About this RNA: This 107-nucleotide RNA sequence from Nicotiana sylvestris belongs to the Rfam family "MIR398 microRNA precursor family". Gene Ontology terms of the family: RISC complex and miRNA-mediated post-transcriptional gene silencing. Lineage of the source: Eukaryota > Magnoliopsida > eudicotyledons > asterids > Nicotiana. The match comes from Rfam's covariance-model search (78 bits).
RNA sequence: GUGCACCCUAGAGGAGUGAACAUGGGAACACAUGUGCAUUUUGGUAUUUUUGUUUUGGCUAAAAUCUUAAUGCACUUGUGUUCUCAGGUCACCCCUUUGGGGUCACC
Number, nucleotide and partner (000 for none) at each position: 001g000002u000003g000004c000005a000006c000007c101008c100009u000010a000011g097012a096013g095014g094015a000016g092017u091018g090019a089020a000021c000022a000023u000024g085025g084026g083027a082028a081029c080030a079031c078032a077033u000034g000035u000036g000037c000038a000039u000040u000041u000042u000043g000044g000045u000046a000047u000048u000049u000050u000051u000052g000053u000054u000055u000056u000057g000058g000059c000060u000061a000062a000063a000064a000065u000066c000067u000068u000069a000070a000071u000072g000073c000074a000075c000076u000077u032078g031079u030080g029081u028082u027083c026084u025085c024086a000087g000088g000089u019090c018091a017092c016093c000094c014095c013096u012097u011098u000099g000100g008101g007102g000103u000104c000105a000106c000107c000